Enterococcus sRNA 84: a 92-nucleotide sequence from Enterococcus sulfureus.
The organism belongs to Enterococcus sulfureus, within Bacteria.
The literature on the family includes a 2015 paper in RNA by Innocenti et al., "Whole-genome mapping of 5' RNA ends in bacteria by tagged sequencing: a comprehensive view in Enterococcus faecalis".
The family's RNA type in Rfam is antisense RNA.
The family's consensus secondary structure was predicted with RNAfold.
RNA sequence: AACCAACAAUAACCUUUUUAUUAUAUUUACUCAUCCCAAUGGGUAAAUACUCCUUUUUUCCGCUAGGUCUAACCAUCCUAGUGGUUUUUUUU
Numbered sequence: 001a002a003c004c005a006a007c008a009a010u011a012a013c014c015u016u017u018u019u020a021u022u023a024u025a026u027u028u029a030c031u032c033a034u035c036c037c038a039a040u041g042g043g044u045a046a047a048u049a050c051u052c053c054u055u056u057u058u059u060c061c062g063c064u065a066g067g068u069c070u071a072a073c074c075a076u077c078c079u080a081g082u083g084g085u086u087u088u089u090u091u092u
Stems, first nucleotide, its partner, number of pairs: 026047007060084008
Dot-bracket structure: .........................(((((((........)))))))............((((((((.........))))))))........